[Rfam]
RNA sequence: AUCAAUGUUAUCAAUAUACCAUAGACAGUAACGGCAUAAGCUUAAUCAUGUUACCGAGGUUAGAGAUACGAAUAUAAACGUACUUUACACUCGUAUGCUGUCUAUUAGUAUGCGAGUGUUUUUAUACUCUU
Numbered sequence: 001a002u003c004a005a006u007g008u009u010a011u012c013a014a015u016a017u018a019c020c021a022u023a024g025a026c027a028g029u030a031a032c033g034g035c036a037u038a039a040g041c042u043u044a045a046u047c048a049u050g051u052u053a054c055c056g057a058g059g060u061u062a063g064a065g066a067u068a069c070g071a072a073u074a075u076a077a078a079c080g081u082a083c084u085u086u087a088c089a090c091u092c093g094u095a096u097g098c099u100g101u102c103u104a105u106u107a108g109u110a111u112g113c114g115a116g117u118g119u120u121u122u123u124a125u126a127c128u129c130u131u
Base pairs, nucleotide, nucleotide: 028054029053030052031051032050033049034041035040090116091115092114093113094112095111096110097109098108099107
The record is a 131-nucleotide RNA from Amedibacillus dolichus, which matches "Ribosomal protein L10 leader" in Rfam. On this family, see Zengel and Lindahl, Prog Nucleic Acid Res Mol Biol 1994: "Diverse mechanisms for regulating ribosomal protein synthesis in Escherichia coli". This family is a putative r-protein leader autoregulatory structure found in B. subtilis and other low-GC Gram-positive bacteria. It is located in the 5' untranslated regions of mRNAs encoding ribosomal proteins L10 and L12 (rplJ-rplL). A Rho-independent transcription terminator structure that is probably involved in regulation is included at the 3' end.